[Rfam]
RNA: Small nucleolar RNA SNORD95
Organism: Erinaceus europaeus
RNA sequence: GGUGCGGUGAUGAUCCCCAACAUGCCAUCUGAGCGCCCUUGCUGAGAACCAGAGGCUGUUUCUGAGUUG
Dot-bracket structure: ....((((.........................................................))))